About this RNA:
This 120-nucleotide sequence from Dorcoceras hygrometricum belongs to the Rfam family "U5 spliceosomal RNA". From the family's description: U5 RNA is a component of both types of known spliceosome. Lineage of the source: Eukaryota > Viridiplantae > Streptophyta > Gesneriaceae > Dorcoceras.
RNA sequence: GAGCUGUGCAAUGAGCACAAAGCGAACUAUUCUUUCGCCUUUUACUAAAGAAUACCGUGUGCUCGUUGCAAUUCAAGCAGCAUACAUUUAUUUUUGGAGGGUACUUUCCCUAUGGAGAGU
Numbered sequence: 001g002a003g004c005u006g007u008g009c010a011a012u013g014a015g016c017a018c019a020a021a022g023c024g025a026a027c028u029a030u031u032c033u034u035u036c037g038c039c040u041u042u043u044a045c046u047a048a049a050g051a052a053u054a055c056c057g058u059g060u061g062c063u064c065g066u067u068g069c070a071a072u073u074c075a076a077g078c079a080g081c082a083u084a085c086a087u088u089u090a091u092u093u094u095u096g097g098a099g100g101g102u103a104c105u106u107u108c109c110c111u112a113u114g115g116a117g118a119g120u
Stems, first nucleotide, its partner, number of pairs: 003081004009068011028054008098120001104119006

About this RNA
A reference for the family is Zwieb (1997), "The uRNA database", Nucleic Acids Res.